RNA sequence: CUAUGUCGAUGUGCAACCGCAGGGCCUCCUUCGAGACCCGAAGAAAAAUUUUUGGAAGUCCAUAAUGGACUG
Numbered sequence: 001c002u003a004u005g006u007c008g009a010u011g012u013g014c015a016a017c018c019g020c021a022g023g024g025c026c027u028c029c030u031u032c033g034a035g036a037c038c039c040g041a042a043g044a045a046a047a048a049u050u051u052u053u054g055g056a057a058g059u060c061c062a063u064a065a066u067g068g069a070c071u072g
Stems, first nucleotide, its partner, number of pairs: 022039003026035003057071006
Record summary: A member of the RNA family "SmY spliceosomal RNA" from Gongylonema pulchrum, 72 nucleotides long. By type it is a spliceosomal small nuclear RNA. Rfam 15.1 lists 408 matches to the family in 67 species.